[Rfam]
RNA sequence: AUAAUCCACUAGCUAUGACUCAAGACAGCAGGCGCACUUGUGCUUAAUUUCCUGCCGAGGUCUCGCGAAGGAUAAUUCUGUAUAUAUGACAGUUAUUAUGGCUUCCGGACUUGCUUGGGUUCGGAGGCCAUUUUUAUGGCGGC
Numbered sequence: 001a002u003a004a005u006c007c008a009c010u011a012g013c014u015a016u017g018a019c020u021c022a023a024g025a026c027a028g029c030a031g032g033c034g035c036a037c038u039u040g041u042g043c044u045u046a047a048u049u050u051c052c053u054g055c056c057g058a059g060g061u062c063u064c065g066c067g068a069a070g071g072a073u074a075a076u077u078c079u080g081u082a083u084a085u086a087u088g089a090c091a092g093u094u095a096u097u098a099u100g101g102c103u104u105c106c107g108g109a110c111u112u113g114c115u116u117g118g119g120u121u122c123g124g125a126g127g128c129c130a131u132u133u134u135u136a137u138g139g140c141g142g143c
Base pairs, nucleotide, nucleotide: 028055029054030053031052032051034043035042036041101128102127103126104125105124106123107122108121109120110119111118112117